RNA: Glycine riboswitch aptamer
Organism: Inhella crocodyli
RNA sequence: GCGCCCCGCUCAGGAGAGCGCCCCGUUGCCCACCGCGGCAUUUGGGGGCCGCCGAAGGCGCAGGCCAGGUUCACCCCCGGCCGAACGCUCAGGCAAAAGGACUGGGCACACGCA
Numbered sequence: 001g002c003g004c005c006c007c008g009c010u011c012a013g014g015a016g017a018g019c020g021c022c023c024c025g026u027u028g029c030c031c032a033c034c035g036c037g038g039c040a041u042u043u044g045g046g047g048g049c050c051g052c053c054g055a056a057g058g059c060g061c062a063g064g065c066c067a068g069g070u071u072c073a074c075c076c077c078c079g080g081c082c083g084a085a086c087g088c089u090c091a092g093g094c095a096a097a098a099g100g101a102c103u104g105g106g107c108a109c110a111c112g113c114a
Stems, first nucleotide, its partner, number of pairs: 008107006020049004051094003054090002058088003064081002